radC RNA: a 138-nucleotide RNA sequence from Acidovorax sp. MR-S7. The source organism's lineage runs through Bacteria, Pseudomonadati, Betaproteobacteria, Burkholderiales and Acidovorax.
RNA sequence: AAGCUGCCCGCAUGUUCGCUGAUGAUUCGUCAGCACAUGCCAGCAGCCAGGGUUCCAGGCUGCCGCGGGUCACUCCCGCGUUGCCCGCCAGUCCGCUCAGCAUCGUCCUGCGGACGAGCGUCCUCGCGACGCCGAUGC
Numbered sequence: 001a002a003g004c005u006g007c008c009c010g011c012a013u014g015u016u017c018g019c020u021g022a023u024g025a026u027u028c029g030u031c032a033g034c035a036c037a038u039g040c041c042a043g044c045a046g047c048c049a050g051g052g053u054u055c056c057a058g059g060c061u062g063c064c065g066c067g068g069g070u071c072a073c074u075c076c077c078g079c080g081u082u083g084c085c086c087g088c089c090a091g092u093c094c095g096c097u098c099a100g101c102a103u104c105g106u107c108c109u110g111c112g113g114a115c116g117a118g119c120g121u122c123c124u125c126g127c128g129a130c131g132c133c134g135a136u137g138c
Stems, first nucleotide, its partner, number of pairs: 011039005018034006043063006051086002064080006110138003118132005

Rfam 15.1 lists 500 matches to the family in 142 species.